[Rfam]
RNA sequence: CUUCAGCGAACCGAGCCAGAGGGGACGGUCCUCGGGACGGUCCUGCCCAUAGGUCGCCAGCAGCGCCUGCGCCUC
Numbered sequence: 001c002u003u004c005a006g007c008g009a010a011c012c013g014a015g016c017c018a019g020a021g022g023g024g025a026c027g028g029u030c031c032u033c034g035g036g037a038c039g040g041u042c043c044u045g046c047c048c049a050u051a052g053g054u055c056g057c058c059a060g061c062a063g064c065g066c067c068u069g070c071g072c073c074u075c
Stems, first nucleotide, its partner, number of pairs: 016024002031071001033069001038065002043060003047056001049054001
Annotation
Shown here is a 75-nucleotide RNA sequence from Wenjunlia tyrosinilytica, a member of the family "ASpks TB sRNA". The organism belongs to Wenjunlia, within Bacteria. By type it is an antisense RNA. Rfam 15.1 lists 9,052 matches to the family in 683 species.